[Rfam]
RNA sequence: GGGGUGUGCUCAGAGCAGGGGACCCGAAGAAUGGCUCCUCUGUUUACAACACACCCAACAACAAUGUGGGUUUACUCCUCACAGAUGGCAGGAUACUUUAGCUUUCCUGUGACAUCAUGCUCUAUACAU
Number, nucleotide and partner (000 for none) at each position: 001g000002g056003g055004g054005u053006g052007u051008g050009c000010u000011c000012a000013g045014a044015g043016c042017a041018g040019g039020g038021g037022a000023c034024c033025c000026g000027a000028a000029g000030a000031a000032u000033g024034g023035c000036u000037c021038c020039u019040c018041u017042g016043u015044u014045u013046a000047c000048a000049a000050c008051a007052c006053a005054c004055c003056c002057a000058a000059c000060a000061a000062c000063a000064a000065u000066g000067u000068g000069g122070g121071u000072u119073u000074a000075c000076u000077c000078c000079u000080c000081a000082c111083a110084g000085a104086u000087g102088g000089c000090a099091g098092g096093a000094u000095a000096c092097u000098u091099u090100a000101g000102c087103u000104u085105u000106c000107c000108u000109g000110u083111g082112a000113c000114a000115u000116c000117a000118u000119g072120c000121u070122c069123u000124a000125u000126a000127c000128a000129u000
Description
Small nucleolar RNA SNORA11: a 129-nucleotide RNA from Hipposideros armiger. Taxonomically the source falls in Hipposideros (Eukaryota, Teleostomi, Sarcopterygii, Mammalia). About the family: U107 (SNORA11) is a member of the H/ACA class of snoRNAs that guide the sites of modification of uridines to pseudouridines. The family has 35 seed sequences and 2,014 matches in Rfam 15.1. A reference for the family is Gu et al. (2005), "A novel experimental approach for systematic identification of box H/ACA snoRNAs from eukaryotes", Nucleic Acids Res.